A member of the RNA family "Guanidine-I riboswitch aptamer" from Stutzerimonas stutzeri, 98 nucleotides long.
[Rfam]
RNA sequence: GAAAUAGCCGACUAGGGUUCCGACUCGCUCGCGAGUGGCUGGUCCGAGAGUUGGCGACCUCCAGUGAGGUUACACGGCGGGAUAAAAGCCCGGGAGAA
Numbered sequence: 001g002a003a004a005u006a007g008c009c010g011a012c013u014a015g016g017g018u019u020c021c022g023a024c025u026c027g028c029u030c031g032c033g034a035g036u037g038g039c040u041g042g043u044c045c046g047a048g049a050g051u052u053g054g055c056g057a058c059c060u061c062c063a064g065u066g067a068g069g070u071u072a073c074a075c076g077g078c079g080g081g082a083u084a085a086a087a088g089c090c091c092g093g094g095a096g097a098a
Stems, first nucleotide, its partner, number of pairs: 007055006015045002020042002022039001023036005056071006073093001075096001079091003
Dot-bracket structure: ......((((((..((...((((((((....)))))..).)).))....))))))((((((....)))))).(.[...(((.......))).)..]..

Pairs were carried over by alignment from the consensus structure.